[Rfam]
RNA: Lysine riboswitch aptamer
Organism: Eubacterium ventriosum
RNA sequence: AAUAAUAGUAGAGGUUGCGCUACCUAUUAGUACAUUAUAAGAUGCCCCGGAGGCAGAUGAUUAUGUUGGAAAGGAUGUAGCGCCGAAGGAGAAUCCACCGGAAGAUUUAUCCUGGGCAUACGGUUAAGAACCGUAUGACUGUCAUCAUUUGAUGGAGAGCCAUUAUCGACAAUCACAUUGAUGGAGAGCUACUUAUAAG
Numbered sequence: 001a002a003u004a005a006u007a008g009u010a011g012a013g014g015u016u017g018c019g020c021u022a023c024c025u026a027u028u029a030g031u032a033c034a035u036u037a038u039a040a041g042a043u044g045c046c047c048c049g050g051a052g053g054c055a056g057a058u059g060a061u062u063a064u065g066u067u068g069g070a071a072a073g074g075a076u077g078u079a080g081c082g083c084c085g086a087a088g089g090a091g092a093a094u095c096c097a098c099c100g101g102a103a104g105a106u107u108u109a110u111c112c113u114g115g116g117c118a119u120a121c122g123g124u125u126a127a128g129a130a131c132c133g134u135a136u137g138a139c140u141g142u143c144a145u146c147a148u149u150u151g152a153u154g155g156a157g158a159g160c161c162a163u164u165a166u167c168g169a170c171a172a173u174c175a176c177a178u179u180g181a182u183g184g185a186g187a188g189c190u191a192c193u194u195a196u197a198a199g
Stems, first nucleotide, its partner, number of pairs: 007193005017083007025075001033068002036065005087113004092108002114140002117137008142184006